[Rfam]
RNA sequence: GACAUUGGAAGGACAGCUAAGUGCGCCAGUGUUGUAACUUAAACCAUGUUACAACCUUCGUCCUGUGGCAACGCUGUCCCGAUCCACAUCCUGUACA
Numbered sequence: 001g002a003c004a005u006u007g008g009a010a011g012g013a014c015a016g017c018u019a020a021g022u023g024c025g026c027c028a029g030u031g032u033u034g035u036a037a038c039u040u041a042a043a044c045c046a047u048g049u050u051a052c053a054a055c056c057u058u059c060g061u062c063c064u065g066u067g068g069c070a071a072c073g074c075u076g077u078c079c080c081g082a083u084c085c086a087c088a089u090c091c092u093g094u095a096c097a
Base pairs, nucleotide, nucleotide: 011079012078013077014076015075016074017073025069026068027067028066083097086094087093
RNA: Bacillaceae-1 RNA
Organism: Peribacillus saganii